[Rfam]
Nucleotides: 314
Base pairs, nucleotide, nucleotide: 040053041052042051043050044049057191058190059189060188061187067184068183069182070181071180072179073178082169083168084167086166087165088164092108093107094106095105096104109151110150111149112148113147114146115145192207193206194205195204197218198217199216202214203213278294279293280292281291284311285310286309287308288307289306
Number, partner (000 for none) and nucleotide at each position: 001000c002000c003000u004000c005000u006000a007000c008000c009000a010000a011000a012000g013000c014000a015000g016000g017000c018000a019000g020000u021000u022000a023000u024000a025000c026000c027000u028000u029000a030000u031000a032000u033000a034000g035000a036000a037000g038000u039000c040053g041052u042051c043050a044049g045000u046000u047000c048000g049044c050043u051042g052041a053040c054000u055000a056000u057191g058190g059189u060188g061187a062000u063000a064000a065000a066000c067184g068183g069182c070181g071180a072179g073178u074000g075000g076000a077000a078000u079000a080000a081000g082169c083168g084167u085000a086166g087165u088164g089000g090000a091000c092108c093107c094106g095105g096104g097000g098000g099000c100000g101000g102000u103000a104096c105095c106094c107093g108092g109151c110150g111149c112148c113147u114146c115145c116000a117000c118000c119000a120000u121000a122000u123000a124000a125000c126000u127000c128000c129000g130000u131000u132000c133000u134000g135000c136000g137000g138000g139000g140000u141000u142000c143000a144000u145115g146114g147113g148112g149111g150110c151109g152000a153000a154000a155000c156000a157000g158000g159000c160000u161000c162000g163000a164088c165087g166086c167084g168083c169082g170000c171000g172000g173000u174000a175000a176000a177000g178073a179072c180071u181070c182069g183068u184067u185000u186000u187061u188060u189059g190058c191057c192207c193206g194205g195204c196000a197218u198217g199216g200000u201000u202214c203213c204195g205194c206193c207192g208000u209000u210000a211000u212000c213203g214202g215000g216199c217198c218197a219000u220000a221000u222000u223000a224000c225000a226000g227000g228000u229000g230000c231000c232000a233000a234000u235000g236000a237000u238000a239000a240000u241000c242000a243000u244000g245000a246000g247000g248000c249000g250000c251000u252000c253000g254000c255000u256000g257000u258000c259000g260000c261000u262000g263000c264000a265000u266000a267000a268000g269000c270000g271000a272000u273000a274000a275000g276000c277000g278294c279293g280292g281291u282000u283000c284311g285310g286309g287308g288307g289306g290000c291281a292280c293279c294278g295000g296000g297000c298000a299000a300000c301000a302000g303000a304000a305000g306289c307288c308287c309286c310285c311284c312000a313000c314000u
Alphaproteobacteria transfer-messenger RNA: a 314-nucleotide RNA sequence from Granulibacter bethesdensis. Its Rfam clan is "tRNA clan". The source organism's lineage runs through Bacteria, Pseudomonadati, Pseudomonadota, Acetobacteraceae and Granulibacter bethesdensis.